[Rfam]
RNA sequence: GCAUGUGUGAUGUGAACAAAACAGUAUGAGAAACUGAAACUGUAAAGGCUUUCUGAUGUG
Numbered sequence: 001g002c003a004u005g006u007g008u009g010a011u012g013u014g015a016a017c018a019a020a021a022c023a024g025u026a027u028g029a030g031a032a033a034c035u036g037a038a039a040c041u042g043u044a045a046a047g048g049c050u051u052u053c054u055g056a057u058g059u060g
Base pairs, nucleotide, nucleotide: 002060003059004058005057012052015050017048022042023041024040025039027037
Shown here is a 60-nucleotide RNA sequence from Apteryx australis, a member of the family "Small nucleolar RNA Z39". For this family Rfam cites "The high diversity of snoRNAs in plants: identification and comparative study of 120 snoRNA genes from Oryza sativa" (Chen et al., Nucleic Acids Res, 2003). Its family is annotated with RNA processing and nucleolus in the Gene Ontology. Lineage of the source: Eukaryota > Archelosauria > Dinosauria > Aves > Apteryx.